[Rfam]
RNA sequence: GCUACAUUUAGUGCCGCCUUUGUCUUUUCAAAGUUUUCUCCUUUUUUUGUAUUUAAGGACAUUACUGUUUUACUCGGUGGCAGAAAUCU
Numbered sequence: 001g002c003u004a005c006a007u008u009u010a011g012u013g014c015c016g017c018c019u020u021u022g023u024c025u026u027u028u029c030a031a032a033g034u035u036u037u038c039u040c041c042u043u044u045u046u047u048u049g050u051a052u053u054u055a056a057g058g059a060c061a062u063u064a065c066u067g068u069u070u071u072a073c074u075c076g077g078u079g080g081c082a083g084a085a086a087u088c089u
Base pairs, nucleotide, nucleotide: 012082013081014080015079016078017077018076022073023072032066033065034064037061039059040058041057042056043055

The family of this 89-nucleotide sequence from Brassica rapa is "Small nucleolar RNA snoR110". By type it is an H/ACA-box small nucleolar RNA. It is one of the family's seed sequences. The source organism's lineage runs through Eukaryota, Euphyllophyta, Magnoliopsida, malvids and Brassica rapa. The base pairs follow the family's consensus structure, which was predicted with WAR. The family has 2 seed sequences and 42 matches in Rfam 15.1. On this family, see Marker et al., Curr Biol 2002: "Experimental RNomics: identification of 140 candidates for small non-messenger RNAs in the plant Arabidopsis thaliana". Its family is annotated with RNA processing and nucleolus in the Gene Ontology.